The family of this 364-nucleotide part of an RNA from Claviceps purpurea is "Ascomycota telomerase RNA". A search with the family's covariance model found it, with a score of 262 bits. Clan: Telomerase clan.
[Rfam]
RNA sequence: AACACACAGAAGAGGUUCUCAUCUUGCGAUCAGCGUUUGUGGCCUAUCGUGCCGACUGAGUCGAGGAAGGUGCAGCACGCCUUGUAAGGCGCAAAGCAACCGGAUUUUUGGAAAUCAAGCCUCUUUGACGCCUUUGCCGUGUAAGUUGUGCGUGUUGGCAUCAGUUCUGGGACCCAUCUCGAGUUGGUGUCAGAGUUUUGUACUCGUCCGGGGCUAGUGUCAAUCACACAUUGCGUCAAAGUGCGGAGAUGAGGUCUUGAAUGAGUCUUCUCAUUAUUGGCUUAAGAGGGCAGGCCGUUUGUAUAGGUAGCCCUGGUUGUCCUCGUGCCUGCAAAGGUGGGAGGACAGCCCCCCUUCGUUGCGG
Numbered sequence: 001a002a003c004a005c006a007c008a009g010a011a012g013a014g015g016u017u018c019u020c021a022u023c024u025u026g027c028g029a030u031c032a033g034c035g036u037u038u039g040u041g042g043c044c045u046a047u048c049g050u051g052c053c054g055a056c057u058g059a060g061u062c063g064a065g066g067a068a069g070g071u072g073c074a075g076c077a078c079g080c081c082u083u084g085u086a087a088g089g090c091g092c093a094a095a096g097c098a099a100c101c102g103g104a105u106u107u108u109u110g111g112a113a114a115u116c117a118a119g120c121c122u123c124u125u126u127g128a129c130g131c132c133u134u135u136g137c138c139g140u141g142u143a144a145g146u147u148g149u150g151c152g153u154g155u156u157g158g159c160a161u162c163a164g165u166u167c168u169g170g171g172a173c174c175c176a177u178c179u180c181g182a183g184u185u186g187g188u189g190u191c192a193g194a195g196u197u198u199u200g201u202a203c204u205c206g207u208c209c210g211g212g213g214c215u216a217g218u219g220u221c222a223a224u225c226a227c228a229c230a231u232u233g234c235g236u237c238a239a240a241g242u243g244c245g246g247a248g249a250u251g252a253g254g255u256c257u258u259g260a261a262u263g264a265g266u267c268u269u270c271u272c273a274u275u276a277u278u279g280g281c282u283u284a285a286g287a288g289g290g291c292a293g294g295c296c297g298u299u300u301g302u303a304u305a306g307g308u309a310g311c312c313c314u315g316g317u318u319g320u321c322c323u324c325g326u327g328c329c330u331g332c333a334a335a336g337g338u339g340g341g342a343g344g345a346c347a348g349c350c351c352c353c354c355u356u357c358g359u360u361g362c363g364g
Base pairs, nucleotide, nucleotide: 171191172190173189174187175186176185193205194204195203196202